[Rfam]
Source information:
This 354-nucleotide part of an RNA from Shewanella pealeana belongs to the Rfam family "Bacterial small subunit ribosomal RNA". The base pairs follow the family's consensus structure, which is taken from published work. The source organism's lineage runs through Bacteria, Alteromonadales, Shewanellaceae, Shewanella and Shewanella pealeana.
RNA sequence: GGCGUAAAGCGUACGCAGGCGGUUUGUUAAGCAAGAUGUGAAAGCCCCGGGCUCAACCUGGGAACUGCAUUUUGAACUGGCAAACUAGAGUCUUGUAGAGGGGGGUAGAAUUUCAGGUGUAGCGGUGAAAUGCGUAGAGAUCUGAAGGAAUACCGGUGGCGAAGGCGGCCCCCUGGACAAAGACUGACGCUCAGGUACGAAAGCGUGGGGAGCAAACAGGAUUAGAUACCCUGGUAGUCCACGCCGUAAACGAUGUCUACUCGGAGUUUGGUGUCUUGAACACUGGGCUCUCAAGCUAACGCAUUAAGUAGACCGCCUGGGGAGUACGGCCGCAAGGUUAAAACUCAAAUGAAU
Numbered sequence: 001g002g003c004g005u006a007a008a009g010c011g012u013a014c015g016c017a018g019g020c021g022g023u024u025u026g027u028u029a030a031g032c033a034a035g036a037u038g039u040g041a042a043a044g045c046c047c048c049g050g051g052c053u054c055a056a057c058c059u060g061g062g063a064a065c066u067g068c069a070u071u072u073u074g075a076a077c078u079g080g081c082a083a084a085c086u087a088g089a090g091u092c093u094u095g096u097a098g099a100g101g102g103g104g105g106u107a108g109a110a111u112u113u114c115a116g117g118u119g120u121a122g123c124g125g126u127g128a129a130a131u132g133c134g135u136a137g138a139g140a141u142c143u144g145a146a147g148g149a150a151u152a153c154c155g156g157u158g159g160c161g162a163a164g165g166c167g168g169c170c171c172c173c174u175g176g177a178c179a180a181a182g183a184c185u186g187a188c189g190c191u192c193a194g195g196u197a198c199g200a201a202a203g204c205g206u207g208g209g210g211a212g213c214a215a216a217c218a219g220g221a222u223u224a225g226a227u228a229c230c231c232u233g234g235u236a237g238u239c240c241a242c243g244c245c246g247u248a249a250a251c252g253a254u255g256u257c258u259a260c261u262c263g264g265a266g267u268u269u270g271g272u273g274u275c276u277u278g279a280a281c282a283c284u285g286g287g288c289u290c291u292c293a294a295g296c297u298a299a300c301g302c303a304u305u306a307a308g309u310a311g312a313c314c315g316c317c318u319g320g321g322g323a324g325u326a327c328g329g330c331c332g333c334a335a336g337g338u339u340a341a342a343a344c345u346c347a348a349a350u351g352a353a354u
Stems, first nucleotide, its partner, number of pairs: 001317003009314001011198004018191003022085007030078002032074009046062006089185003093180004100174007107151001111147008122133003159166002203244006212238002217233004255313006263291012295302002319346003328339004